[Rfam]
RNA sequence: GGCGACCUGGCGACAGGGCGCUUCACAUCGCGGGGCGCGUCUGCCUCGCCACAUAAACGGAAGACAGAAA
Numbered sequence: 001g002g003c004g005a006c007c008u009g010g011c012g013a014c015a016g017g018g019c020g021c022u023u024c025a026c027a028u029c030g031c032g033g034g035g036c037g038c039g040u041c042u043g044c045c046u047c048g049c050c051a052c053a054u055a056a057a058c059g060g061a062a063g064a065c066a067g068a069a070a
Stems, first nucleotide, its partner, number of pairs: 001022004006018003031048006